About this RNA: This 48-nucleotide RNA from Nocardioides sp. HDW12B belongs to the Rfam family "L31-Actinobacteria ribosomal protein leader".
RNA sequence: UUGGCCCCGGUUCACGUCCGGCUCACCACGAGCCGACGACCCGGGGCC
Numbered sequence: 001u002u003g004g005c006c007c008c009g010g011u012u013c014a015c016g017u018c019c020g021g022c023u024c025a026c027c028a029c030g031a032g033c034c035g036a037c038g039a040c041c042c043g044g045g046g047c048c
Base pairs, nucleotide, nucleotide: 003048004047005046007044008043009042010041015038016037017036018035020034021033022032023031024030
It scores 45 bits against the family's covariance model.